[Rfam]
RNA sequence: CGCCUGAAAGGGGAUGGAGUUCCCCCUGGUAACCGCCGUGAUGCUGAUGACUCCUGUUGUUUU
Number, nucleotide and partner (000 for none) at each position: 001c000002g000003c000004c000005u000006g000007a000008a000009a000010g026011g025012g024013g023014a000015u000016g054017g053018a052019g051020u050021u049022c000023c013024c012025c011026c010027u000028g000029g000030u000031a000032a000033c000034c000035g044036c043037c000038g000039u000040g000041a000042u000043g036044c035045u000046g000047a000048u000049g021050a020051c019052u018053c017054c016055u000056g000057u000058u000059g000060u000061u000062u000063u000
RNA: Fluoride riboswitch aptamer (crcB RNA motif)
Organism: Desulfonatronospira thiodismutans